[Rfam]
RNA sequence: AUAAUGAUACUUCCUUAUAGCCAUAGUCCGAGCGUUCAAAGCGUCGCAGGCAAUGGGUAGGGCUUCGGCAGACCGCCGGAGGGGUGCAAGUCCCAUGA
Numbered sequence: 001a002u003a004a005u006g007a008u009a010c011u012u013c014c015u016u017a018u019a020g021c022c023a024u025a026g027u028c029c030g031a032g033c034g035u036u037c038a039a040a041g042c043g044u045c046g047c048a049g050g051c052a053a054u055g056g057g058u059a060g061g062g063c064u065u066c067g068g069c070a071g072a073c074c075g076c077c078g079g080a081g082g083g084g085u086g087c088a089a090g091u092c093c094c095a096u097g098a
Stems, first nucleotide, its partner, number of pairs: 012095001013062006063081003067077003082094003
A member of the RNA family "pemK RNA", 98 nucleotides long. The sequence is in the family's curated seed alignment.